[Rfam]
RNA sequence: UAUAUUAAUUUACUAAAACACACAUAUAUCGACACUUGUUAUCGGGGUGUUCAGGCUAGUUUGAUUUAGACUGAAUCGAUACAAGGGAUAUAUGGAGGCCUAAC
Dot-bracket structure: ......................((((((((....(((((.((((....(((((..................)))))))))))))).))))))))..........

About this RNA: The record is a 104-nucleotide RNA from Alteromonas australica, which matches "t44 RNA" in Rfam. From the family's description: This family consists of a number of bacterial RNA genes of between 135 and 170 bases in length. The t44 gene has been identified in several species of enteric bacteria but homologs have also been identified in Pseudomonas and Coxiella species. The t44 gene is found between the map and rpsB genes in all species in the full alignment apart from Shigella flexneri. The function of this RNA is unknown. It scores 78 bits against the family's covariance model. The family's RNA type in Rfam is small RNA.